Shown here is a 76-nucleotide RNA sequence from Alligator mississippiensis, a member of the family "Mammalian CPEB3 ribozyme". About the family: The mammalian CPEB3 ribozyme is a self cleaving RNA located in the second intron of the CPEB3 gene which belongs to a family of genes regulating messenger RNA polyadenylation. This ribozyme is highly conserved and found only in mammals. The CPEB3 ribozyme is structurally and biochemically related to the human hepatitis delta virus (HDV) ribozyme and the HDV ribozyme is proposed to have arisen from the human transcriptome. There is currently only one other known self cleaving ribozyme in mammals, the CoTC motif. The source organism's lineage runs through Eukaryota, Teleostomi, Euteleostomi, Sarcopterygii and Alligator. The family's consensus secondary structure is taken from published work. Its family is annotated with RNA nuclease activity in the Gene Ontology.

[Rfam]
RNA sequence: GUUGCAAGUUUGAGGCCACAGCAGAAGCACUCAUAGCAGGGCCAUGUCGGAUUCCAACAAAUCUGCAAAUUCUGCU
Numbered sequence: 001g002u003u004g005c006a007a008g009u010u011u012g013a014g015g016c017c018a019c020a021g022c023a024g025a026a027g028c029a030c031u032c033a034u035a036g037c038a039g040g041g042c043c044a045u046g047u048c049g050g051a052u053u054c055c056a057a058c059a060a061a062u063c064u065g066c067a068a069a070u071u072c073u074g075c076u
Base pairs, nucleotide, nucleotide: 014043015042016040017039020076021075022074023073024072025071026070027037028036048065049064050063051062052061053060